[Rfam]
RNA sequence: AGACACGGGUGCCGUGAGGCCUCGGUCCGCUCGCUUUCGGCCCUGGCGCACCUUCCCCGGCGCCAGGUUCGACGAGCGGGCGGGGACCUGGCGGCACCCGUCUCAACGA
Numbered sequence: 001a002g003a004c005a006c007g008g009g010u011g012c013c014g015u016g017a018g019g020c021c022u023c024g025g026u027c028c029g030c031u032c033g034c035u036u037u038c039g040g041c042c043c044u045g046g047c048g049c050a051c052c053u054u055c056c057c058c059g060g061c062g063c064c065a066g067g068u069u070c071g072a073c074g075a076g077c078g079g080g081c082g083g084g085g086a087c088c089u090g091g092c093g094g095c096a097c098c099c100g101u102c103u104c105a106a107c108g109a
Base pairs, nucleotide, nucleotide: 008098009097010096011095012094013093014092018088019087021085022084023083025081026080027079028078029077030076031075032074037072038071039070040069042067043066044065045064046063047062048061049060

Annotation
Rfam assigns this 109-nucleotide RNA from Herbihabitans rhizosphaerae to the family "mraW RNA". By type it is a cis-regulatory element. Lineage of the source: Bacteria > Bacillati > Actinomycetes > Pseudonocardiales > Herbihabitans. The family's consensus secondary structure is taken from published work.